Shown here is a 457-nucleotide sequence from Malurus elegans, a member of the family "Vertebrate telomerase RNA". The base pairs follow the family's consensus structure, which is taken from published work.
RNA sequence: CCUUCCGGGCAAGGCAGGCCCUAGGCCGGUAACCCUAAUGGUGGCUGUGCCCUCGCCAUCGCCCGCUGUUUUAUUUGCUGACUUUCAGAGGGCGGAGGGAACGGCCUAGGGAAAGGGGAAAGGGGGGAGCGGGGAGGAAGUCCGGCCUCAAAAAACGUCAGCUAAGGGAAUCCUUUUCCCGGCCCACCCUGGGGUCCCUGUCCCUCCCCCGCAAACCGGGACGAUCCCAUCAUCGCCGGCCCUCGCGGAGGCCGCGGUCGGCUGGCUCAGCGCUAUUACCGCCGCGAAGAGCUCGGCUCUGUCAGCCUUGGCGAUGACCGGGAGAGGAGAGCCGGCCCACCCAGCCUGGGCAGCCGGGAGACUCCCAACCGAACAAAACGGGCGCGGCGCCACGGGACGCUGAGCAGCCGCGGCUCCCUCGGACGUGGGGGGCGCGGCCGGCGCCGCCCCGACACCC
Number, nucleotide and partner (000 for none) at each position: 001c000002c000003u000004u000005c182006c181007g180008g179009g178010c000011a176012a175013g174014g173015c000016a171017g000018g000019c168020c167021c166022u165023a000024g000025g000026c000027c000028g000029g000030u000031a000032a000033c000034c000035c000036u000037a000038a000039u000040g000041g000042u000043g000044g000045c000046u000047g000048u000049g000050c099051c098052c097053u096054c095055g000056c000057c000058a000059u000060c094061g093062c092063c091064c090065g000066c088067u087068g086069u000070u000071u000072u000073a000074u000075u000076u000077g162078c161079u160080g159081a158082c157083u155084u154085u153086c068087a067088g066089a000090g064091g063092g062093c061094g060095g054096a053097g052098g051099g050100a000101a000102c000103g000104g000105c000106c000107u000108a000109g000110g000111g000112a000113a000114a000115g000116g000117g000118g000119a000120a000121a000122g000123g000124g000125g000126g000127g000128a000129g000130c000131g000132g000133g000134g000135a000136g000137g000138a000139a000140g000141u000142c000143c000144g000145g000146c000147c000148u000149c000150a000151a000152a000153a085154a084155a083156c000157g082158u081159c080160a079161g078162c077163u000164a000165a022166g021167g020168g019169a000170a000171u016172c000173c014174u013175u012176u011177u000178c009179c008180c007181g006182g005183c000184c000185c000186a000187c000188c000189c000190u367191g366192g365193g364194g363195u000196c000197c000198c000199u000200g000201u000202c000203c000204c000205u000206c000207c000208c000209c000210c000211g000212c000213a000214a000215a000216c000217c000218g000219g000220g000221a000222c324223g000224a000225u321226c320227c000228c000229a000230u000231c000232a000233u317234c316235g312236c311237c310238g309239g308240c000241c000242c000243u000244c000245g000246c000247g000248g000249a000250g000251g000252c000253c286254g285255c284256g283257g282258u000259c281260g280261g279262c000263u000264g274265g273266c272267u000268c000269a000270g000271c000272g266273c265274u264275a000276u000277u000278a000279c261280c260281g259282c257283c256284g255285c254286g253287a000288a300289g299290a298291g297292c000293u000294c000295g000296g000297c291298u290299c289300u288301g000302u000303c000304a000305g000306c000307c000308u239309u238310g237311g236312c235313g000314a000315u000316g234317a233318c000319c000320g226321g225322g000323a000324g222325a000326g000327g000328a000329g000330a000331g000332c000333c000334g000335g000336c000337c000338c000339a000340c000341c000342c000343a000344g000345c000346c000347u000348g000349g000350g000351c000352a000353g000354c000355c000356g000357g000358g000359a000360g000361a000362c000363u194364c193365c192366c191367a190368a000369c000370c000371g000372a000373a000374c000375a000376a000377a000378a000379c000380g449381g448382g447383c446384g000385c000386g445387g444388c443389g442390c441391c440392a000393c000394g000395g000396g000397a000398c000399g000400c000401u000402g000403a000404g000405c000406a000407g000408c437409c436410g435411c434412g433413g000414c000415u430416c429417c428418c427419u000420c000421g000422g000423a000424c000425g000426u000427g418428g417429g416430g415431g000432g000433c412434g411435c410436g409437g408438c000439c000440g391441g390442c389443g388444c387445c386446g383447c382448c381449c380450c000451g000452a000453c000454a000455c000456c000457c000
Gene Ontology terms of the family: telomerase catalytic core complex, telomerase activity and telomere maintenance via telomerase.